Annotation
The family of this 90-nucleotide RNA from Shigella boydii is "Plasmid-encoded Shigella sRNA A". The sequence is in the family's curated seed alignment.

[Rfam]
RNA sequence: UGGCUGCGAAAAGAGUUUUAAUUUUUAUGAGGCCGACGAUGAUUACGGACUCAGGCGACAGGCACAAAUCGGAGAGAAACUAUGUUUGAA
Number, nucleotide and partner (000 for none) at each position: 001u064002g063003g000004c061005u060006g059007c057008g056009a000010a000011a000012a000013g052014a051015g050016u049017u048018u047019u045020a044021a043022u042023u041024u000025u000026u000027a000028u000029g000030a000031g000032g000033c000034c000035g000036a000037c000038g000039a000040u000041g023042a022043u021044u020045a019046c000047g018048g017049a016050c015051u014052c013053a000054g000055g000056c008057g007058a000059c006060a005061g004062g000063c002064a001065c000066a000067a000068a000069u089070c088071g087072g086073a085074g000075a083076g000077a000078a000079a000080c000081u000082a000083u075084g000085u073086u072087u071088g070089a069090a000
For this family Rfam cites "An integrated approach for finding overlooked genes in Shigella" (Peng et al., PLoS One, 2011). The base pairs follow the family's consensus structure, which was predicted with RNAfold.